[Rfam]
RNA: MIR7502 microRNA precursor family
RNA sequence: UGUUAAAAAUUUCAUCCAUUUUAGUGUUAAAAACUGAUAUCUAUAUAUGAGCAUGGGAUACAUGUAGCACACUAGGUAUCACUGUCUAGUUAUUUUGUCUGCCACACUAUUUUUUAACUGUAAAAAUGGAUGAAAUUUUUAACA
Numbered sequence: 001u002g003u004u005a006a007a008a009a010u011u012u013c014a015u016c017c018a019u020u021u022u023a024g025u026g027u028u029a030a031a032a033a034c035u036g037a038u039a040u041c042u043a044u045a046u047a048u049g050a051g052c053a054u055g056g057g058a059u060a061c062a063u064g065u066a067g068c069a070c071a072c073u074a075g076g077u078a079u080c081a082c083u084g085u086c087u088a089g090u091u092a093u094u095u096u097g098u099c100u101g102c103c104a105c106a107c108u109a110u111u112u113u114u115u116a117a118c119u120g121u122a123a124a125a126a127u128g129g130a131u132g133a134a135a136u137u138u139u140u141a142a143c144a
Stems, first nucleotide, its partner, number of pairs: 002143015018127004022122002027117006